[Rfam]
RNA: mir-9223 microRNA precursor family
RNA sequence: AGUGGUUCUCAGGUGACGCAACCUGGAUUCGGGCUCCUUCCUCUUUGGUUCUAGGUGUCACCCAAGAACCGUA
Number, nucleotide and partner (000 for none) at each position: 001a000002g072003u071004g000005g069006u068007u067008c066009u065010c000011a000012g062013g061014u060015g059016a058017c057018g000019c000020a000021a056022c055023c054024u000025g052026g051027a050028u000029u048030c047031g046032g045033g044034c000035u000036c000037c000038u000039u000040c000041c000042u000043c000044u033045u032046u031047g030048g029049u000050u027051c026052u025053a000054g023055g022056u021057g017058u016059c015060a014061c013062c012063c000064a000065a009066g008067a007068a006069c005070c000071g003072u002073a000